RNA sequence: UUUUAACGAUCCCAGCCACAGCGGUUUAUCCUCGGUCCGAUGUUUACCGUAAGUAUUAAGCAGCGCAUGGGCUUC
Number, nucleotide and partner (000 for none) at each position: 001u000002u000003u000004u000005a000006a000007c000008g000009a000010u000011c000012c000013c000014a026015g025016c024017c023018a000019c000020a000021g000022c000023g017024g016025u015026u014027u000028a000029u000030c000031c071032u070033c069034g000035g000036u000037c000038c065039g064040a000041u000042g000043u060044u059045u058046a000047c000048c000049g054050u000051a000052a000053g000054u049055a000056u000057u000058a045059a044060g043061c000062a000063g000064c039065g038066c000067a000068u000069g033070g032071g031072c000073u000074u000075c000
Annotation:
The record is a 75-nucleotide sequence from Lonsdalea quercina, which matches "ASpks TB sRNA" in Rfam. The family's consensus secondary structure is taken from published work. NCBI's taxonomy places the organism under Bacteria, Pseudomonadota, Enterobacterales, Pectobacteriaceae, Lonsdalea. A search with the family's covariance model found it, with a score of 59 bits.